[Rfam]
RNA sequence: GAGCCAGCUCAGCCCAGCGGUUCCAUCAACCAACACAUAGCUUAGAUCCUGCAAUCGCCCACAGCAGUUUGAAACCCGUUGGCGCUGCCUGGCUCUCAA
Numbered sequence: 001g002a003g004c005c006a007g008c009u010c011a012g013c014c015c016a017g018c019g020g021u022u023c024c025a026u027c028a029a030c031c032a033a034c035a036c037a038u039a040g041c042u043u044a045g046a047u048c049c050u051g052c053a054a055u056c057g058c059c060c061a062c063a064g065c066a067g068u069u070u071g072a073a074a075c076c077c078g079u080u081g082g083c084g085c086u087g088c089c090u091g092g093c094u095c096u097c098a099a
Stems, first nucleotide, its partner, number of pairs: 002094006012083003017079004026072004